[Rfam]
RNA sequence: GCGAGACAGGAUGCCCCAACCACGAGAACGCCGGAUAAACUGGCCUCUGGAUCCGCGUCGAGCGCAGCUCUCGGCCGGGUCCAUAAAUGAUCAGCCAGCAGCCGCUGCAACCCCAGGGAG
Number, nucleotide and partner (000 for none) at each position: 001g000002c000003g000004a000005g000006a000007c000008a000009g000010g000011a000012u000013g000014c000015c000016c000017c000018a000019a000020c000021c000022a000023c000024g000025a000026g000027a000028a000029c000030g000031c000032c000033g000034g000035a000036u000037a000038a000039a000040c000041u000042g000043g000044c000045c000046u000047c000048u000049g082050g081051a080052u079053c078054c077055g000056c000057g075058u000059c073060g072061a071062g070063c000064g000065c000066a000067g000068c000069u000070c062071u061072c060073g059074g000075c057076c000077g054078g053079g052080u051081c050082c049083a000084u000085a000086a000087a000088u000089g000090a000091u000092c000093a000094g000095c000096c107097a106098g105099c104100a000101g000102c000103c000104g099105c098106u097107g096108c000109a000110a000111c000112c000113c000114c000115a000116g000117g000118g000119a000120g000
Streptomyces-metK RNA: a 120-nucleotide sequence from Streptomyces netropsis. Taxonomically the source falls in Streptomyces (Bacteria, Bacillati, Actinomycetota, Streptomycetaceae). It is annotated as a small RNA.